[Rfam]
RNA sequence: CAGUCUCUUGCUUCAGCAGUGUUUGAAUGGAACAG
Numbered sequence: 001c002a003g004u005c006u007c008u009u010g011c012u013u014c015a016g017c018a019g020u021g022u023u024u025g026a027a028u029g030g031a032a033c034a035g
Base pairs, nucleotide, nucleotide: 001035003033004032006031007030008029010028012027013026014025015024016023017021
This 35-nucleotide RNA from Callithrix jacchus belongs to the Rfam family "Iron response element I". Its family is annotated with response to iron ion in the Gene Ontology. Taxonomically the source falls in Callithrix (Eukaryota, Eumetazoa, Craniata, Callithrix). On this family, see Walden et al., Science 2006: "Structure of dual function iron regulatory protein 1 complexed with ferritin IRE-RNA". The family's RNA type in Rfam is cis-regulatory element.